[Rfam]
RNA sequence: UCACUGGUCACCGCGUUAAAGUUUGGCGGUUACAAAAUCCAGCACCGGAUACAACGAAGAGG
Numbered sequence: 001u002c003a004c005u006g007g008u009c010a011c012c013g014c015g016u017u018a019a020a021g022u023u024u025g026g027c028g029g030u031u032a033c034a035a036a037a038u039c040c041a042g043c044a045c046c047g048g049a050u051a052c053a054a055c056g057a058a059g060a061g062g
Stems, first nucleotide, its partner, number of pairs: 004042004010030004015022002
Rfam assigns this 62-nucleotide RNA to the family "cow-rumen-1 RNA". By type it is a small RNA. It is one of the family's seed sequences.